[Rfam]
RNA sequence: UAAACGGAUAUCGUAAUCCGGUGCUGUGUGUGGUACCUGGUUUGGAUACCAGAUAGGUUAGGAGACAGCUUCUAAAGAUUUAUCUUGGCGAGGGGAAACCCAGGGUAGCUCCCAUCUGAGUACGUCGCAUCCUAACAUGCCAAUCCGGAGAAUGGGGUGAAACUCCUCUGAAAUCCGGUGUUGCUUCAUUCCACACGAAGCACAAACAAACAGAAACACCGGGGAAUUUGUCGAUCCUUGGGUACAUUAAGUUUGA
Numbered sequence: 001u002a003a004a005c006g007g008a009u010a011u012c013g014u015a016a017u018c019c020g021g022u023g024c025u026g027u028g029u030g031u032g033g034u035a036c037c038u039g040g041u042u043u044g045g046a047u048a049c050c051a052g053a054u055a056g057g058u059u060a061g062g063a064g065a066c067a068g069c070u071u072c073u074a075a076a077g078a079u080u081u082a083u084c085u086u087g088g089c090g091a092g093g094g095g096a097a098a099c100c101c102a103g104g105g106u107a108g109c110u111c112c113c114a115u116c117u118g119a120g121u122a123c124g125u126c127g128c129a130u131c132c133u134a135a136c137a138u139g140c141c142a143a144u145c146c147g148g149a150g151a152a153u154g155g156g157g158u159g160a161a162a163c164u165c166c167u168c169u170g171a172a173a174u175c176c177g178g179u180g181u182u183g184c185u186u187c188a189u190u191c192c193a194c195a196c197g198a199a200g201c202a203c204a205a206a207c208a209a210a211c212a213g214a215a216a217c218a219c220c221g222g223g224g225a226a227u228u229u230g231u232c233g234a235u236c237c238u239u240g241g242g243u244a245c246a247u248u249a250a251g252u253u254u255g256a
Stems, first nucleotide, its partner, number of pairs: 005020005021203004029195005035189001037052004057136005075086004087126004208254004219241007227233001
Description
The family of this 256-nucleotide sequence is "Hairpin ribozyme 2 from viruses-like metatranscriptomes". Hairpin-meta ribozymes were recognised in metatranscriptomic sequences of viruses-like organisms, it was proved by co-transcriptional assays that hairpin-meta1 and hairpin-meta2 non-coding RNA (ncRNAs) are catalytically active and it is suggested that they likely replicate as circular single-stranded RNAs. Rfam's curators put it in the seed alignment. Its family is annotated with RNA nuclease activity in the Gene Ontology. For this family Rfam cites "Identification of over 200-fold more hairpin ribozymes than previously known in diverse circular RNAs" (Weinberg et al., Nucleic Acids Res, 2021).